[Rfam]
RNA sequence: UGCCUGCUGAACCCUAUCUCCACCUCCACGUGGUGACCGCUGGGAGCUCUUUCUUGACGAAAAGCUGCAGACGGAGAAGG
Numbered sequence: 001u002g003c004c005u006g007c008u009g010a011a012c013c014c015u016a017u018c019u020c021c022a023c024c025u026c027c028a029c030g031u032g033g034u035g036a037c038c039g040c041u042g043g044g045a046g047c048u049c050u051u052u053c054u055u056g057a058c059g060a061a062a063a064g065c066u067g068c069a070g071a072c073g074g075a076g077a078a079g080g
Stems, first nucleotide, its partner, number of pairs: 013080003017076001019074002022034003045066004050061002053059001